The family of this 76-nucleotide RNA sequence from Zafaria cholistanensis is "Actino-pnp RNA".
RNA sequence: CGCGGUCCUCGGUAGUGGCCUACGGGACGGGACGGCACAUGCCGGACGGACCCGUGGGUCUCGAUCGAAGACCGGG
Numbered sequence: 001c002g003c004g005g006u007c008c009u010c011g012g013u014a015g016u017g018g019c020c021u022a023c024g025g026g027a028c029g030g031g032a033c034g035g036c037a038c039a040u041g042c043c044g045g046a047c048g049g050a051c052c053c054g055u056g057g058g059u060c061u062c063g064a065u066c067g068a069a070g071a072c073c074g075g076g
Stems, first nucleotide, its partner, number of pairs: 001076001003074005009068005017060010028049001
NCBI's taxonomy places the organism under Bacteria, Bacillati, Actinomycetes, Micrococcaceae, Zafaria. Rfam classes the family as a cis-regulatory element.